[Rfam]
RNA: tRNA
RNA sequence: AGGGCACUAGCUCAACUGGUAGAGCAUCGGUCUCCAAAACCGAAGGUUGGGGGUUCAAGUCCCUCGUGCCCUG
Numbered sequence: 001a002g003g004g005c006a007c008u009a010g011c012u013c014a015a016c017u018g019g020u021a022g023a024g025c026a027u028c029g030g031u032c033u034c035c036a037a038a039a040c041c042g043a044a045g046g047u048u049g050g051g052g053g054u055u056c057a058a059g060u061c062c063c064u065c066g067u068g069c070c071c072u073g
Stems, first nucleotide, its partner, number of pairs: 001072007010025004027043005049065005